[Rfam]
Nucleotides: 082
Base pairs, nucleotide, nucleotide: 008031009030010029011028012027013026014025015024016023064077065076066075067074
Number, partner (000 for none) and nucleotide at each position: 001000a002000a003000c004000c005000a006000a007000a008031u009030u010029c011028c012027c013026g014025g015024a016023g017000a018000g019000g020000g021000a022000a023016c024015u025014c026013c027012g028011g029010g030009a031008a032000g033000a034000u035000a036000c037000a038000a039000u040000a041000a042000a043000u044000u045000a046000a047000g048000a049000u050000u051000a052000a053000g054000u055000a056000g057000u058000a059000g060000g061000a062000a063000u064077c065076a066075a067074c068000a069000a070000g071000u072000a073000u074067g075066u076065u077064g078000c079000a080000a081000u082000a

Shown here is an 82-nucleotide RNA sequence from Raddia brasiliensis, a member of the family "Plastid-rpl20 3UTR RNA". It is one of the family's seed sequences. About the family: Plastid rpl20 is a non-coding RNA (ncRNA) recognised in plastids. It was found in the three prime untranslated region (3UTR) of rpl20 gene, it presence in the 3UTR region sugest a role in transcript maduration. NCBI's taxonomy places the organism under Eukaryota, Petrosaviidae, Bambusoideae, Olyrinae, Raddia.